The record is a 103-nucleotide RNA from Vulpes vulpes, which matches "mir-8834 microRNA precursor family" in Rfam.
RNA sequence: AGGAGGAACAACCGCAGUGGUGGCCUGCUCUGGAGCCUUGGAUUCAGCUCCCGCAGUAGCUCCGGAGCUCUCCGUCUGCAGGGCCUGGAGGCUCCGGGGGCGG
Numbered sequence: 001a002g003g004a005g006g007a008a009c010a011a012c013c014g015c016a017g018u019g020g021u022g023g024c025c026u027g028c029u030c031u032g033g034a035g036c037c038u039u040g041g042a043u044u045c046a047g048c049u050c051c052c053g054c055a056g057u058a059g060c061u062c063c064g065g066a067g068c069u070c071u072c073c074g075u076c077u078g079c080a081g082g083g084c085c086u087g088g089a090g091g092c093u094c095c096g097g098g099g100g101c102g103g
Base pairs, nucleotide, nucleotide: 002095003094004093005092009087010086012083013082019076020075021074022073023070027068028067029066030065031064032063033062034061038056039055040054
The source organism's lineage runs through Eukaryota, Deuterostomia, Teleostomi, Amniota and Vulpes.
The family has 2 seed sequences and 13,926 matches in Rfam 15.1.